[Rfam]
RNA sequence: UUGAUUUAAAUUAUUGUGAAUCUACAUUUUGAGAAUCGAACUUACACAAAAUGGUUGAACAUACAUUAAUUUCAUCAG
Numbered sequence: 001u002u003g004a005u006u007u008a009a010a011u012u013a014u015u016g017u018g019a020a021u022c023u024a025c026a027u028u029u030u031g032a033g034a035a036u037c038g039a040a041c042u043u044a045c046a047c048a049a050a051a052u053g054g055u056u057g058a059a060c061a062u063a064c065a066u067u068a069a070u071u072u073c074a075u076c077a078g
Stems, first nucleotide, its partner, number of pairs: 001078003006074001008072006015065004022057001024055001025053007
Shown here is a 78-nucleotide RNA from Medicago truncatula, a member of the family "MIR5269 microRNA precursor family". The match comes from Rfam's covariance-model search (65 bits). The family's consensus secondary structure was predicted with RNAalifold.